[Rfam]
RNA sequence: GGUGUGAUAUAGGUAGUUUCAAGUUGUUGGGCUGAACUCUUGUGAUCACAGGAACCUGAAACUGCCUGAGUCACGCU
Numbered sequence: 001g002g003u004g005u006g007a008u009a010u011a012g013g014u015a016g017u018u019u020c021a022a023g024u025u026g027u028u029g030g031g032c033u034g035a036a037c038u039c040u041u042g043u044g045a046u047c048a049c050a051g052g053a054a055c056c057u058g059a060a061a062c063u064g065c066c067u068g069a070g071u072c073a074c075g076c077u
Base pairs, nucleotide, nucleotide: 003075004074005073006072007071008070010068011067012066013065014064015063016062017061018060019059023055024054025053027051028050029049031047
Dot-bracket structure: ..((((((.((((((((((...(((.(((.(...............).))).)))...)))))))))).))))))..

Shown here is a 77-nucleotide sequence from Takifugu flavidus, a member of the family "mir-196 microRNA precursor family". The family has 84 seed sequences and 1,813 matches in Rfam 15.1. The family's consensus secondary structure was predicted with PFOLD. Rfam links the family to the GO terms gene silencing by miRNA and RISC complex. The match comes from Rfam's covariance-model search (64 bits). For this family Rfam cites "New microRNAs from mouse and human" (Lagos-Quintana et al., RNA, 2003).